RNA sequence: AACAGAAUAUGAUAAUUUCUAUGUAUAACCUCAUUAAUAUGGUCUGAGGGUCUCUACCAGGAACCGUAAAAUCCUGAUUACAGAAAAUGAUUUCAUUUUU
Numbered sequence: 001a002a003c004a005g006a007a008u009a010u011g012a013u014a015a016u017u018u019c020u021a022u023g024u025a026u027a028a029c030c031u032c033a034u035u036a037a038u039a040u041g042g043u044c045u046g047a048g049g050g051u052c053u054c055u056a057c058c059a060g061g062a063a064c065c066g067u068a069a070a071a072u073c074c075u076g077a078u079u080a081c082a083g084a085a086a087a088u089g090a091u092u093u094c095a096u097u098u099u100u
Stems, first nucleotide, its partner, number of pairs: 018086001020084001022082004029049005058076005
The record is a 100-nucleotide RNA sequence from Paenibacillus sp. JCM 10914, which matches "Purine riboswitch aptamer" in Rfam. It scores 72 bits against the family's covariance model. The family's consensus secondary structure is taken from published work. The source organism's lineage runs through Bacteria, Bacillati, Bacillota, Paenibacillaceae and Paenibacillus.